A member of the RNA family "SAM-III riboswitch aptamer (SMK box)" from Limosilactobacillus mucosae, 106 nucleotides long.
Pairs were carried over by alignment from the consensus structure, which is taken from published work.
[Rfam]
RNA sequence: GAACGUUAUAAAGCAAAUUCCCGAUAGGAUUCACAGAUUGUGAAGAUGCCUUGUAACCGCAAUAACCGAACUUUUUAGUUUAGAAAAUGGGGGAAUUAACAAAAUG
Dot-bracket structure: .................(((((...(((.(((((.....)))))....))).....((..............................)))))))...........

The source organism's lineage runs through Bacteria, Bacilli, Lactobacillaceae, Limosilactobacillus and Limosilactobacillus mucosae. It scores 65 bits against the family's covariance model. Rfam links the family to the GO terms regulation of translational initiation and methionine adenosyltransferase activity.